[Rfam]
RNA: SAM/SAH riboswitch aptamer
RNA sequence: UGACCGUCACAACGGCUUCCUGACGUGGCGGACUAACCCUACUGGAGCA
Numbered sequence: 001u002g003a004c005c006g007u008c009a010c011a012a013c014g015g016c017u018u019c020c021u022g023a024c025g026u027g028g029c030g031g032a033c034u035a036a037c038c039c040u041a042c043u044g045g046a047g048c049a
Base pairs, nucleotide, nucleotide: 004031005030006029007028008027009026010025013022014021015048016047017046019045020044